[Rfam]
RNA sequence: CAUCGCCUGCACGGGAGCCCAGCAGCGGGCUGAGAGGGCGGUGAGCACGCACCGCCGACCGUCACGACCUGAUCCGGAUAAUGCCGGCGCAGGGAAGGAGGCACGUGCCCCAG
Numbered sequence: 001c002a003u004c005g006c007c008u009g010c011a012c013g014g015g016a017g018c019c020c021a022g023c024a025g026c027g028g029g030c031u032g033a034g035a036g037g038g039c040g041g042u043g044a045g046c047a048c049g050c051a052c053c054g055c056c057g058a059c060c061g062u063c064a065c066g067a068c069c070u071g072a073u074c075c076g077g078a079u080a081a082u083g084c085c086g087g088c089g090c091a092g093g094g095a096a097g098g099a100g101g102c103a104c105g106u107g108c109c110c111c112a113g
Stems, first nucleotide, its partner, number of pairs: 006101003010097001011062004017030004037056007068093004074087004
A member of the RNA family "TPP riboswitch aptamer (THI element)" from Conexibacter arvalis, 113 nucleotides long.